The family of this 508-nucleotide sequence from Streptomyces lydicus is "Saccharopolyspora sRNA 350".

RNA sequence: CGAUAGCUGAACUGCCAGGUCCCGUCGGUGGUGAGCGGCGCGUCGCCGAGGUGGUCGCCCCCGGCCAGCGCCUCCAGCACCGCGCUCUCGCCGUACUUGCCGGUGCCGAUGCGGUCCACCCGGCCGUGUGCGAUCAGCACCAGCCGGUCCUGCGCGUCCCCGGCCUCGGCGAUCAGCUCGCCGGGCCCGUACUCGUGCUGGGUGAACCGCCGGCCGAGCGCCGCCAGUACCUCGGUGUCGGUGAAUUCCCGCAGGGCGGGCAGCUCGCGCAGCUCCUCGGGGAUGAUCGAGACGUCGGAGCCGUUGAUGUCGAAGUCGAUACGCCCGUCCCCGAGCGUGUAGGUCAGCCGGCGGUUCACGCGAUAGGUGCCACCGGACACCUGCACCCAGGGGAGCAGCCGCAGCAGCCAGCGGGAAGUGAUCCCCUGCAUCUGCGGCGGUGUUUUGGUGGUGGUCGCCAGAUUCCGGGCGGCGGAGGUGGUCAGACUGGAAUUCUGGGAAUCUUCCG
Numbered sequence: 001c002g003a004u005a006g007c008u009g010a011a012c013u014g015c016c017a018g019g020u021c022c023c024g025u026c027g028g029u030g031g032u033g034a035g036c037g038g039c040g041c042g043u044c045g046c047c048g049a050g051g052u053g054g055u056c057g058c059c060c061c062c063g064g065c066c067a068g069c070g071c072c073u074c075c076a077g078c079a080c081c082g083c084g085c086u087c088u089c090g091c092c093g094u095a096c097u098u099g100c101c102g103g104u105g106c107c108g109a110u111g112c113g114g115u116c117c118a119c120c121c122g123g124c125c126g127u128g129u130g131c132g133a134u135c136a137g138c139a140c141c142a143g144c145c146g147g148u149c150c151u152g153c154g155c156g157u158c159c160c161c162g163g164c165c166u167c168g169g170c171g172a173u174c175a176g177c178u179c180g181c182c183g184g185g186c187c188c189g190u191a192c193u194c195g196u197g198c199u200g201g202g203u204g205a206a207c208c209g210c211c212g213g214c215c216g217a218g219c220g221c222c223g224c225c226a227g228u229a230c231c232u233c234g235g236u237g238u239c240g241g242u243g244a245a246u247u248c249c250c251g252c253a254g255g256g257c258g259g260g261c262a263g264c265u266c267g268c269g270c271a272g273c274u275c276c277u278c279g280g281g282g283a284u285g286a287u288c289g290a291g292a293c294g295u296c297g298g299a300g301c302c303g304u305u306g307a308u309g310u311c312g313a314a315g316u317c318g319a320u321a322c323g324c325c326c327g328u329c330c331c332c333g334a335g336c337g338u339g340u341a342g343g344u345c346a347g348c349c350g351g352c353g354g355u356u357c358a359c360g361c362g363a364u365a366g367g368u369g370c371c372a373c374c375g376g377a378c379a380c381c382u383g384c385a386c387c388c389a390g391g392g393g394a395g396c397a398g399c400c401g402c403a404g405c406a407g408c409c410a411g412c413g414g415g416a417a418g419u420g421a422u423c424c425c426c427u428g429c430a431u432c433u434g435c436g437g438c439g440g441u442g443u444u445u446u447g448g449u450g451g452u453g454g455u456c457g458c459c460a461g462a463u464u465c466c467g468g469g470c471g472g473c474g475g476a477g478g479u480g481g482u483c484a485g486a487c488u489g490g491a492a493u494u495c496u497g498g499g500a501a502u503c504u505u506c507c508g
Base pairs, nucleotide, nucleotide: 006387008385009384011382018325019324025319026318027317028316029315034308036306037305038304039303042302044300046298047297048296049295051230052229055226057224058223061220062108063107064106065105074099076097077096079094080093082091083090114219115218117216120213123210124209126207127206128203129202131200132199137194147188152186153185155183156182158180163170164169232292233291237287238286239285240284246283247282248281249280250279251278253277254276255275256268257267258266326339327338328337348376349375350374351373353371354370357369358368359367388428389427390426391425392424393423394422396420397419400415402413404412434473435472437470442465444462445461446460447459448458449457474507475506477503478502479501482498483497484496485495
On this family, see Liu et al., PLoS One 2013: "Prediction and characterization of small non-coding RNAs related to secondary metabolites in Saccharopolyspora erythraea". The family's consensus secondary structure was predicted with RNAfold.